[Rfam]
RNA sequence: GGAUCGACGAUGACUCCCACAAGUGUAUUCCCCGGAAAUCUGAAAAAAAAUGAGUGAGAAACCCCUACCGUCACCUCAUUGGAACUGAGGUCC
Numbered sequence: 001g002g003a004u005c006g007a008c009g010a011u012g013a014c015u016c017c018c019a020c021a022a023g024u025g026u027a028u029u030c031c032c033c034g035g036a037a038a039u040c041u042g043a044a045a046a047a048a049a050a051u052g053a054g055u056g057a058g059a060a061a062c063c064c065c066u067a068c069c070g071u072c073a074c075c076u077c078a079u080u081g082g083a084a085c086u087g088a089g090g091u092c093c
Stems, first nucleotide, its partner, number of pairs: 001093005026056005
The record is a 93-nucleotide RNA sequence from Neophocaena asiaeorientalis, which matches "Small nucleolar RNA SNORD116" in Rfam. Lineage of the source: Eukaryota > Dipnotetrapodomorpha > Amniota > Theria > Neophocaena asiaeorientalis. The family's consensus secondary structure was predicted with PFOLD.